Record summary:
A member of the RNA family "Small nucleolar RNA SNORD24" from Perca fluviatilis, 75 nucleotides long. Gene Ontology terms of the family: nucleolus and RNA processing. The match comes from Rfam's covariance-model search (77 bits). On this family, see Qu et al., Nucleic Acids Res 1995: "U24, a novel intron-encoded small nucleolar RNA with two 12 nt long, phylogenetically conserved complementarities to 28S rRNA". The family's RNA type in Rfam is C/D-box small nucleolar RNA.
RNA sequence: UGCAGAUGAUGUAAACGAAUAUUUGCUAUCUUAUGCAUACUGAAGACAACUUUUAUCACCAAGAUCGCUGAUGCA
Numbered sequence: 001u002g003c004a005g006a007u008g009a010u011g012u013a014a015a016c017g018a019a020u021a022u023u024u025g026c027u028a029u030c031u032u033a034u035g036c037a038u039a040c041u042g043a044a045g046a047c048a049a050c051u052u053u054u055a056u057c058a059c060c061a062a063g064a065u066c067g068c069u070g071a072u073g074c075a
Stems, first nucleotide, its partner, number of pairs: 001075004